The record is a 100-nucleotide RNA from Chelonia mydas, which matches "Small nucleolar RNA SNORD16" in Rfam. The match comes from Rfam's covariance-model search (99 bits). The organism belongs to Chelonia, within Eukaryota. The family's RNA type in Rfam is C/D-box small nucleolar RNA.
RNA sequence: UGCCAUGAUGUUGUAAUUUGAGUCUUACUCUGUACUCAGUGACAGUUGCCUGCCGUCAAUGAGCUGGUACAGAUGGUUGACGAACAGCUAAUGCUGAGCA
Number, nucleotide and partner (000 for none) at each position: 001u100002g099003c098004c000005a000006u000007g000008a000009u000010g000011u000012u000013g000014u000015a000016a000017u000018u000019u000020g000021a000022g081023u080024c079025u000026u000027a000028c000029u000030c072031u071032g070033u069034a068035c000036u000037c000038a000039g064040u063041g057042a056043c055044a000045g053046u000047u000048g000049c000050c000051u000052g000053c045054c000055g043056u042057c041058a000059a000060u000061g000062a000063g040064c039065u000066g000067g000068u034069a033070c032071a031072g030073a000074u000075g000076g000077u000078u000079g024080a023081c022082g000083a000084a000085c000086a000087g000088c000089u000090a000091a000092u000093g000094c000095u000096g000097a000098g003099c002100a001